[Rfam]
Shown here is a 224-nucleotide RNA from Vagococcus entomophilus, a member of the family "T-box leader". Rfam describes the family as follows. Uncharged tRNA acts as the effector for transcription antitermination of genes in the T-box leader family. T-boxes are found upstream of many aminoacyl-tRNA synthetase genes and some amino acid biosynthetic genes usually in Gram-positive bacteria. The family's RNA type in Rfam is cis-regulatory leader.

RNA sequence: AUAAUACAUGUAAGAAGAAGAAGUAAAACUAUCACUUUUUUAGAGAGUCUAUGGUUGGUGAAAAUAGAUAUCAGUGAUUUUUUGAAAUGCCUCUUCAAGUGUUUUUUUACGAAUACUUGAAAAAGUUAGUAGUGAAAAACGUUUAUGAAGCGUUAAUUCAUAAAAAAGGUGAAGCACAACUUGCUUCAUAAAUAAAAGUGGAACCACGUAGAAACGUCUUUUGA
Numbered sequence: 001a002u003a004a005u006a007c008a009u010g011u012a013a014g015a016a017g018a019a020g021a022a023g024u025a026a027a028a029c030u031a032u033c034a035c036u037u038u039u040u041u042a043g044a045g046a047g048u049c050u051a052u053g054g055u056u057g058g059u060g061a062a063a064a065u066a067g068a069u070a071u072c073a074g075u076g077a078u079u080u081u082u083u084g085a086a087a088u089g090c091c092u093c094u095u096c097a098a099g100u101g102u103u104u105u106u107u108u109a110c111g112a113a114u115a116c117u118u119g120a121a122a123a124a125g126u127u128a129g130u131a132g133u134g135a136a137a138a139a140c141g142u143u144u145a146u147g148a149a150g151c152g153u154u155a156a157u158u159c160a161u162a163a164a165a166a167a168g169g170u171g172a173a174g175c176a177c178a179a180c181u182u183g184c185u186u187c188a189u190a191a192a193u194a195a196a197a198g199u200g201g202a203a204c205c206a207c208g209u210a211g212a213a214a215c216g217u218c219u220u221u222u223g224a
Base pairs, nucleotide, nucleotide: 007101008100015095016094017093018092026083027082028081031078038070047069048068049067050066051065052064104138105137106136107135108134109133110132140152141151142150169189170188171187172186173185174184175183195221196220197219198218206217207216208215209214